This 114-nucleotide RNA from Hibiscus syriacus belongs to the Rfam family "Plastid-psbA-1 3UTR RNA". The source organism's lineage runs through Eukaryota, Streptophyta, rosids, Malvales and Hibiscus.

RNA sequence: UUGGAGCUCCAUCUGCAAAUAGAUAAGACUUUGAUUUAUUGUAUACGAGUUUUUUAAAAUAAAGGAGUGAUAACCAAUUUCUUGUUCUAUCAAGAGUAUUGGUAUUGUUCUUUU
Numbered sequence: 001u002u003g004g005a006g007c008u009c010c011a012u013c014u015g016c017a018a019a020u021a022g023a024u025a026a027g028a029c030u031u032u033g034a035u036u037u038a039u040u041g042u043a044u045a046c047g048a049g050u051u052u053u054u055u056a057a058a059a060u061a062a063a064g065g066a067g068u069g070a071u072a073a074c075c076a077a078u079u080u081c082u083u084g085u086u087c088u089a090u091c092a093a094g095a096g097u098a099u100u101g102g103u104a105u106u107g108u109u110c111u112u113u114u
Stems, first nucleotide, its partner, number of pairs: 008023002011020002061114012076099001079096005
Dot-bracket structure: .......((.((......)).)).....................................((((((((((((...(..(((((........)))))..)...))))))))))))
Clan: Plastid-psbA 3UTR RNA clan.